[Rfam]
RNA sequence: AUGAUAAUAACGAGAGAUAUCCAAAGGGAUGGCCGAAGAUGCAAUAUAAAAGGUACCAGUCUUUUAUAGAAACUUUCAGGCAAAAAUAUCGUUAUUUGAUG
Dot-bracket structure: .....((((((((.....((((....)))).(((((..(.(...((((((((((....))))))))))....).))).))).......)))))))).....